[Rfam]
RNA sequence: ACUUGAAUUAAGGGGCAACCCUUAACUGGCCAAUUGGGCAAAAGCCGAGAGGUACAAAUCCAAGGGGCAGAAAGUUCUGCAAAGCAUCGCUGAACAUGCAGAACGGGAGGCAUGGCGGUAGCGCAUCAACGACGUGCCAA
Numbered sequence: 001a002c003u004u005g006a007a008u009u010a011a012g013g014g015g016c017a018a019c020c021c022u023u024a025a026c027u028g029g030c031c032a033a034u035u036g037g038g039c040a041a042a043a044g045c046c047g048a049g050a051g052g053u054a055c056a057a058a059u060c061c062a063a064g065g066g067g068c069a070g071a072a073a074g075u076u077c078u079g080c081a082a083a084g085c086a087u088c089g090c091u092g093a094a095c096a097u098g099c100a101g102a103a104c105g106g107g108a109g110g111c112a113u114g115g116c117g118g119u120a121g122c123g124c125a126u127c128a129a130c131g132a133c134g135u136g137c138c139a140a
Base pairs, nucleotide, nucleotide: 008025009024010023011022012021013020014019026070027069028068030067031066034063035062036061037060038059044053045052046051074104075103076102077101078100079099080098081097088123089122090121091120109138110137111136112135113134114133116131117130
A member of the RNA family "IMES-2 RNA motif", 140 nucleotides long. Rfam classes the family as a non-coding RNA gene. The base pairs follow the family's consensus structure, which is taken from published work.